RNA sequence: CAGAGUGUAUGGAUGUGGAUAGAGAAGGGUUAGUAAACGGUAGAAAACCCAUUUAUUGUAUGUCAUUGGCUGUUCGAGAUUAAGCAGCUGUAAUUCGAUGGCCAUACUCAUUAAAUGGGUUGGCUGUUUGCUCUGUACCAGCCCUUCUCCUAUCCACAAUUGUACUAGUUUG
Dot-bracket structure: ......((((((.((((((((.(((((((((.((....((((.((((((((((((........(((((((((((........))))).......))))))...........)))))))))).....))))))....)).)))))))))..)))))))).)))))).......
A member of the RNA family "MIR946 microRNA precursor family" from Pinus taeda, 172 nucleotides long. The base pairs follow the family's consensus structure, which was predicted with RNAalifold. Gene Ontology terms of the family: RISC complex and miRNA-mediated post-transcriptional gene silencing.